[Rfam]
RNA: Small nucleolar RNA snoR74
RNA sequence: AAAAAAGCAGGGAUCUAUUGCCUUCUUUGUGAAUGGGUCUCUCGUAAAUGUCAGGGAUAUCAAGAAUUGCAUUGUUAUUGGGUGAACCACUUGACUUAAUUUAUGAUGGAAUGGUUCAGUAAACGAUGAUACAUUA
Numbered sequence: 001a002a003a004a005a006a007g008c009a010g011g012g013a014u015c016u017a018u019u020g021c022c023u024u025c026u027u028u029g030u031g032a033a034u035g036g037g038u039c040u041c042u043c044g045u046a047a048a049u050g051u052c053a054g055g056g057a058u059a060u061c062a063a064g065a066a067u068u069g070c071a072u073u074g075u076u077a078u079u080g081g082g083u084g085a086a087c088c089a090c091u092u093g094a095c096u097u098a099a100u101u102u103a104u105g106a107u108g109g110a111a112u113g114g115u116u117c118a119g120u121a122a123a124c125g126a127u128g129a130u131a132c133a134u135u136a
Base pairs, nucleotide, nucleotide: 005051007049011040012039014037015036016035017034018033019032070128071127072126073125074124075123076122083118084117085116086115087114088113089112